The family of this 59-nucleotide RNA from Hydrocera triflora is "Plastid-ccsA-ndhD-1 3UTR RNA".
By type it is a cis-regulatory element.
Rfam's curators put it in the seed alignment.
On this family, see Zandueta-Criado and Bock, Nucleic Acids Res 2004: "Surprising features of plastid ndhD transcripts: addition of non-encoded nucleotides and polysome association of mRNAs with an unedited start codon".
The family is grouped with related families in Rfam's "Plastid-ccsA_ndhD 3UTR RNA clan".
From the family's description: Plastid-ccsA-ndhD-1 is a non-coding RNA (ncRNA) recognised in plastids. It was found in the three prime untranslated region (3UTR) of ccsA and ndhD genes, its 3UTR location suggests a role in transcript maturation.
The source organism's lineage runs through Eukaryota, Streptophytina, Mesangiospermae, Gunneridae and Hydrocera.

RNA sequence: AAGACAGCGAGAACCAUUUGAAUCAAGUAGUGCAACGAUUCAAAUGGUUCUCACAAACA
Numbered sequence: 001a002a003g004a005c006a007g008c009g010a011g012a013a014c015c016a017u018u019u020g021a022a023u024c025a026a027g028u029a030g031u032g033c034a035a036c037g038a039u040u041c042a043a044a045u046g047g048u049u050c051u052c053a054c055a056a057a058c059a
Stems, first nucleotide, its partner, number of pairs: 007054001009052016
Dot-bracket structure: ......(.((((((((((((((((............)))))))))))))))).).....